Annotation: Pseudomon-groES RNA: a 117-nucleotide sequence from Pseudomonas sp. GV071. The base pairs follow the family's consensus structure, which is taken from published work. A search with the family's covariance model found it, with a score of 87 bits.
RNA sequence: GUAGUGGUCACCGCAAGGUCUCUGUCGGUUUACGACAGUCAGUCUUCCGCGUUGCCGCUCUGCGGCGCGCGACCGGCCACGCCGGAUAGCAAUCAACCAGCCGGUGAAUAAACCGGC
Numbered sequence: 001g002u003a004g005u006g007g008u009c010a011c012c013g014c015a016a017g018g019u020c021u022c023u024g025u026c027g028g029u030u031u032a033c034g035a036c037a038g039u040c041a042g043u044c045u046u047c048c049g050c051g052u053u054g055c056c057g058c059u060c061u062g063c064g065g066c067g068c069g070c071g072a073c074c075g076g077c078c079a080c081g082c083c084g085g086a087u088a089g090c091a092a093u094c095a096a097c098c099a100g101c102c103g104g105u106g107a108a109u110a111a112a113c114c115g116g117c
Base pairs, nucleotide, nucleotide: 010019011018012017022038023037024036025035026034048071049070050069051068052067054066055065056064057063073085074084075083076082100117101116102115103114104113105112